[Rfam]
RNA sequence: UUAUGGAAACCCGUAGAUCCGAACUUGUGUCUUAAUUGAUUCUCUUCACAAAUUUGUUUCUACGGGAAUCUGUCGG
Numbered sequence: 001u002u003a004u005g006g007a008a009a010c011c012c013g014u015a016g017a018u019c020c021g022a023a024c025u026u027g028u029g030u031c032u033u034a035a036u037u038g039a040u041u042c043u044c045u046u047c048a049c050a051a052a053u054u055u056g057u058u059u060c061u062a063c064g065g066g067a068a069u070c071u072g073u074c075g076g
Stems, first nucleotide, its partner, number of pairs: 003073005010066003015061003020056004025051005
A member of the RNA family "mir-10 microRNA precursor family" from Chironomus riparius, 76 nucleotides long.
Taxonomically the source falls in Chironomus (Eukaryota, Opisthokonta, Ecdysozoa, Endopterygota).